[Rfam]
RNA sequence: UCCUGAAAAAGCCAACCCGUCGAUAUCACGGGACGGAAAGCAACGGGUCUUCAAAGAUGAGACAGCCGGGCCGCCAGG
Numbered sequence: 001u002c003c004u005g006a007a008a009a010a011g012c013c014a015a016c017c018c019g020u021c022g023a024u025a026u027c028a029c030g031g032g033a034c035g036g037a038a039a040g041c042a043a044c045g046g047g048u049c050u051u052c053a054a055a056g057a058u059g060a061g062a063c064a065g066c067c068g069g070g071c072c073g074c075c076a077g078g
Base pairs, nucleotide, nucleotide: 012036013035017031018030019029020028022026040071041070044068045067046066047063048062049061051060052059053058
This 78-nucleotide RNA from Syntrophus gentianae belongs to the Rfam family "c-di-GMP-I riboswitch aptamer". It scores 43 bits against the family's covariance model. The source organism's lineage runs through Bacteria, Pseudomonadati, Thermodesulfobacteriota, Syntrophaceae and Syntrophus.